[Rfam]
RNA sequence: AGAUGAGAGAAACACCUCGCCCACAGGGGACUGCGGGCGAUGCCGAACCGGAGCUUCCCCGGCGCCGUUUCGGCCGUGUCCUCGGGCACACCGCCGGAUCCUUCGGUUCCGGCACUCCUCACCGAUCGGA
Dot-bracket structure: ...((((.((......((((((.(((....))).)))))).((((((.(((.((.......)).))).)))))).((((......))))...((((((.(.....).))))))..))))))((....)).
Numbered sequence: 001a002g003a004u005g006a007g008a009g010a011a012a013c014a015c016c017u018c019g020c021c022c023a024c025a026g027g028g029g030a031c032u033g034c035g036g037g038c039g040a041u042g043c044c045g046a047a048c049c050g051g052a053g054c055u056u057c058c059c060c061g062g063c064g065c066c067g068u069u070u071c072g073g074c075c076g077u078g079u080c081c082u083c084g085g086g087c088a089c090a091c092c093g094c095c096g097g098a099u100c101c102u103u104c105g106g107u108u109c110c111g112g113c114a115c116u117c118c119u120c121a122c123c124g125a126u127c128g129g130a
Stems, first nucleotide, its partner, number of pairs: 004121004009117002017040006024033003042074006049067003053063002076089004093113006100106001122129002
The record is a 130-nucleotide RNA sequence from Streptomyces sp. sk2.1, which matches "Streptomyces RNA 5676" in Rfam. By type it is a small RNA. From the family's description: Identified by deep sequencing of transcriptome at the end of exponential growth phase. NCBI's taxonomy places the organism under Bacteria, Actinomycetota, Kitasatosporales, Streptomycetaceae, Streptomyces.